The record is a 64-nucleotide RNA from Caenorhabditis brenneri, which matches "mir-35_2 microRNA precursor family" in Rfam.
RNA sequence: AGCUGAUUUUUCCACUGGUGAUAAUUCCAAGAAUAGUGUUUAUCACCGGGUGUGAAUUGGCUCU
Numbered sequence: 001a002g003c004u005g006a007u008u009u010u011u012c013c014a015c016u017g018g019u020g021a022u023a024a025u026u027c028c029a030a031g032a033a034u035a036g037u038g039u040u041u042a043u044c045a046c047c048g049g050g051u052g053u054g055a056a057u058u059g060g061c062u063c064u
Base pairs, nucleotide, nucleotide: 001062002061003060005058006057007056008055009054010052012050013049016048017047018046019045020044021043022042023041

Record summary: Rfam links the family to the GO terms RISC complex and miRNA-mediated post-transcriptional gene silencing. Lineage of the source: Eukaryota > Metazoa > Eumetazoa > Protostomia > Caenorhabditis.